[Rfam]
RNA: eL15-Euryarchaeota ribosomal protein leader
RNA sequence: CCUGUCUGUACAGGUCGGGAUGUGGCCUACGUGGGCUGAACCAACAA
Numbered sequence: 001c002c003u004g005u006c007u008g009u010a011c012a013g014g015u016c017g018g019g020a021u022g023u024g025g026c027c028u029a030c031g032u033g034g035g036c037u038g039a040a041c042c043a044a045c046a047a
Stems, first nucleotide, its partner, number of pairs: 001014005017042002024037005